Bacteroidete tryptophan peptide leader RNA: a 129-nucleotide RNA from Flavobacterium rivulicola.
RNA sequence: UUGCCUUAUACAGAAAGAAAAUGAAUAACAUUUUAAACAAUACUUGGUGGUGGAAUAGUUUACGUCGAACGUCGUGAAAUAGUCUGCUACGAGUAUAUUUUAAAAUCUAAAUAUCCGAAAAGGCUUGUC
Numbered sequence: 001u002u003g004c005c006u007u008a009u010a011c012a013g014a015a016a017g018a019a020a021a022u023g024a025a026u027a028a029c030a031u032u033u034u035a036a037a038c039a040a041u042a043c044u045u046g047g048u049g050g051u052g053g054a055a056u057a058g059u060u061u062a063c064g065u066c067g068a069a070c071g072u073c074g075u076g077a078a079a080u081a082g083u084c085u086g087c088u089a090c091g092a093g094u095a096u097a098u099u100u101u102a103a104a105a106u107c108u109a110a111a112u113a114u115c116c117g118a119a120a121a122g123g124c125u126u127g128u129c
Stems, first nucleotide, its partner, number of pairs: 036100002040096006046088002049085002056081002059078003062072003
Dot-bracket structure: ...................................((..((((((((.((.....((.((((((.....)))...))).))..)).))..))))))..)).............................
The family's RNA type in Rfam is cis-regulatory leader.